[Rfam]
RNA sequence: CGAGUCCACGGGCCGCAACCAGCGUCCCGGGGAGCCGGGGAACCACUCACGGAGCGCCCAGGGGAUCGCCCCUGGUCAGGCGCCGUCAGGGGUGAAUCCGCAGUCCGCGUGGACCGAACCCCGCGCGUCCGCGGACGGGCAACUCCCGCCCGAACCCGUCAGCUAACUCGGUAGGCGGACGAGGAGAGGAGAA
Numbered sequence: 001c002g003a004g005u006c007c008a009c010g011g012g013c014c015g016c017a018a019c020c021a022g023c024g025u026c027c028c029g030g031g032g033a034g035c036c037g038g039g040g041a042a043c044c045a046c047u048c049a050c051g052g053a054g055c056g057c058c059c060a061g062g063g064g065a066u067c068g069c070c071c072c073u074g075g076u077c078a079g080g081c082g083c084c085g086u087c088a089g090g091g092g093u094g095a096a097u098c099c100g101c102a103g104u105c106c107g108c109g110u111g112g113a114c115c116g117a118a119c120c121c122c123g124c125g126c127g128u129c130c131g132c133g134g135a136c137g138g139g140c141a142a143c144u145c146c147c148g149c150c151c152g153a154a155c156c157c158g159u160c161a162g163c164u165a166a167c168u169c170g171g172u173a174g175g176c177g178g179a180c181g182a183g184g185a186g187a188g189g190a191g192a193a
Base pairs, nucleotide, nucleotide: 001174005033006032007031034172035171036170037169038168039167044089090157091156092155098134099133100132101131137151138150139149140148
The record is a 193-nucleotide RNA from Actinomadura rubrisoli, which matches "c-di-AMP riboswitch aptamer (ydaO/yuaA leader)" in Rfam. Pairs were carried over by alignment from the consensus structure.